[Rfam]
The record is an 87-nucleotide sequence from Medicago truncatula, which matches "MIR2617 microRNA precursor family" in Rfam. The source organism's lineage runs through Eukaryota, Embryophyta, Euphyllophyta, Fabaceae and Medicago. The family's consensus secondary structure was predicted with RNAalifold. A search with the family's covariance model found it, with a score of 58 bits.

RNA sequence: AUGUCGUGUGACAUGCCCGUUUUGAGAAUACUCUGAUGUAUGAUUAUUUAUUAUUUAAUUGUUUUGGGUAACGGGGUGUUACAGUUA
Dot-bracket structure: .((.(.((((((((.((((((................................................))))))))))))))).))
Numbered sequence: 001a002u003g004u005c006g007u008g009u010g011a012c013a014u015g016c017c018c019g020u021u022u023u024g025a026g027a028a029u030a031c032u033c034u035g036a037u038g039u040a041u042g043a044u045u046a047u048u049u050a051u052u053a054u055u056u057a058a059u060u061g062u063u064u065u066g067g068g069u070a071a072c073g074g075g076g077u078g079u080u081a082c083a084g085u086u087a
Stems, first nucleotide, its partner, number of pairs: 002087002005084001007083008016075006